[Rfam]
RNA sequence: AAUCUGAUUCUUAAGGGUAAAUAUCAGUGGUAAUUCUGGGGAUUUUUCAGAAAAUUGAAAAUAUAAAUUUUUAAUACCCAGAGUUUCAUCUGGUAUACACUCUUUUGAAUUC
Numbered sequence: 001a002a003u004c005u006g007a008u009u010c011u012u013a014a015g016g017g018u019a020a021a022u023a024u025c026a027g028u029g030g031u032a033a034u035u036c037u038g039g040g041g042a043u044u045u046u047u048c049a050g051a052a053a054a055u056u057g058a059a060a061a062u063a064u065a066a067a068u069u070u071u072u073a074a075u076a077c078c079c080a081g082a083g084u085u086u087c088a089u090c091u092g093g094u095a096u097a098c099a100c101u102c103u104u105u106u107g108a109a110u111u112c
Stems, first nucleotide, its partner, number of pairs: 013104006021096007028088003033084008
The family of this 112-nucleotide sequence from Megaselia scalaris is "mir-283 microRNA precursor family". The match comes from Rfam's covariance-model search (63 bits). On this family, see Skalsky et al., BMC Genomics 2010: "Identification of microRNAs expressed in two mosquito vectors, Aedes albopictus and Culex quinquefasciatus". Rfam links the family to the GO terms RISC complex and miRNA-mediated post-transcriptional gene silencing. The family is grouped with related families in Rfam's "mir-216 clan".